[Rfam]
RNA sequence: AUCGUUCAACUCUUAAUGAGUCGGAAGUAGGCAAAAAUAGCUGAAGGAACGCGGA
Numbered sequence: 001a002u003c004g005u006u007c008a009a010c011u012c013u014u015a016a017u018g019a020g021u022c023g024g025a026a027g028u029a030g031g032c033a034a035a036a037a038u039a040g041c042u043g044a045a046g047g048a049a050c051g052c053g054g055a
Stems, first nucleotide, its partner, number of pairs: 003051005009021004024052001030042003
Rfam assigns this 55-nucleotide sequence to the family "Glutamine riboswitch aptamer (glnA leader)". On this family, see Ren et al., Cell Rep 2015: "Structural and Dynamic Basis for Low-Affinity, High-Selectivity Binding of L-Glutamine by the Glutamine Riboswitch".